[Rfam]
RNA sequence: CUGCACUCGCAUAUAGGCCUCUCUCCACUUGGUAGUGUGGCCUUGAGCGAUAGUGCAGAGAUUAAUAGCUGUUAAAUCAGCGGCGGCCAGACAACCGCUGAGAUGGAUCCACAGGUGAAUAGCCCAAAGUGCUGCUUGCCUACUAAAUCCAUCUUACAUAU
Numbered sequence: 001c002u003g004c005a006c007u008c009g010c011a012u013a014u015a016g017g018c019c020u021c022u023c024u025c026c027a028c029u030u031g032g033u034a035g036u037g038u039g040g041c042c043u044u045g046a047g048c049g050a051u052a053g054u055g056c057a058g059a060g061a062u063u064a065a066u067a068g069c070u071g072u073u074a075a076a077u078c079a080g081c082g083g084c085g086g087c088c089a090g091a092c093a094a095c096c097g098c099u100g101a102g103a104u105g106g107a108u109c110c111a112c113a114g115g116u117g118a119a120u121a122g123c124c125c126a127a128a129g130u131g132c133u134g135c136u137u138g139c140c141u142a143c144u145a146a147a148u149c150c151a152u153c154u155u156a157c158a159u160a161u
Stems, first nucleotide, its partner, number of pairs: 002057005008049003012045002015043005021037001023035002026032001100155008118137002120134003
A member of the RNA family "small nucleolar RNA snoR143" from Rhodamnia argentea, 161 nucleotides long. It is annotated as an H/ACA-box small nucleolar RNA. Pairs were carried over by alignment from the consensus structure, which was predicted with RNAalifold. The match comes from Rfam's covariance-model search (108 bits). Gene Ontology terms of the family: RNA processing and nucleolus.